[Rfam]
RNA sequence: CUACCUUUUGGAUGAACUGGUCCCUGAUAUGCAUUCUCCAUCUGCUUCACUUUCUCAGCUAUCUUGGUUCUAAUCUUAGCUGAUCAUUAAGGGUGUGACAUUA
Numbered sequence: 001c002u003a004c005c006u007u008u009u010g011g012a013u014g015a016a017c018u019g020g021u022c023c024c025u026g027a028u029a030u031g032c033a034u035u036c037u038c039c040a041u042c043u044g045c046u047u048c049a050c051u052u053u054c055u056c057a058g059c060u061a062u063c064u065u066g067g068u069u070c071u072a073a074u075c076u077u078a079g080c081u082g083a084u085c086a087u088u089a090a091g092g093g094u095g096u097g098a099c100a101u102u103a
Base pairs, nucleotide, nucleotide: 037097039095040094041093042092055083056082057081058080059079060078061077